[Rfam]
RNA sequence: CGUCCACUCACGGGGUGCCCCAUCCAGGGGCUGAGAGGCAAGAGCCAACCCGACGAACCUGAUCCGGCUCGUACCGGCGGAGGGAUGGGAGAUGGCCGCCGG
Numbered sequence: 001c002g003u004c005c006a007c008u009c010a011c012g013g014g015g016u017g018c019c020c021c022a023u024c025c026a027g028g029g030g031c032u033g034a035g036a037g038g039c040a041a042g043a044g045c046c047a048a049c050c051c052g053a054c055g056a057a058c059c060u061g062a063u064c065c066g067g068c069u070c071g072u073a074c075c076g077g078c079g080g081a082g083g084g085a086u087g088g089g090a091g092a093u094g095g096c097c098g099c100c101g102g
Stems, first nucleotide, its partner, number of pairs: 007089004011052004017031005038045002058083003064077004
RNA: TPP riboswitch aptamer (THI element)
Organism: Aureimonas altamirensis